[Rfam]
RNA sequence: GCCACGCCUAGCUAUCGGCUGAUCCCCGAUAGUGAAAACCGGGACUCCCUGACCUGGCGGCGCUGGUUUUUUAUCAGGUGG
Numbered sequence: 001g002c003c004a005c006g007c008c009u010a011g012c013u014a015u016c017g018g019c020u021g022a023u024c025c026c027c028g029a030u031a032g033u034g035a036a037a038a039c040c041g042g043g044a045c046u047c048c049c050u051g052a053c054c055u056g057g058c059g060g061c062g063c064u065g066g067u068u069u070u071u072u073a074u075c076a077g078g079u080g081g
Base pairs, nucleotide, nucleotide: 001067002066003065004064005062006061007060008059011033012032013031014030015029016028017027018026039057040056041055042054043053047081048080050078

The family of this 81-nucleotide sequence from Burkholderiales bacterium PBB3 is "int-alpA RNA". Lineage of the source: Bacteria > Pseudomonadati > Pseudomonadota > Betaproteobacteria > Burkholderiales. The family has 167 seed sequences and 577 matches in Rfam 15.1. Acidobacteria (1 example), Planctomycetes (1 example), Proteobacteria. A search with the family's covariance model found it, with a score of 38 bits.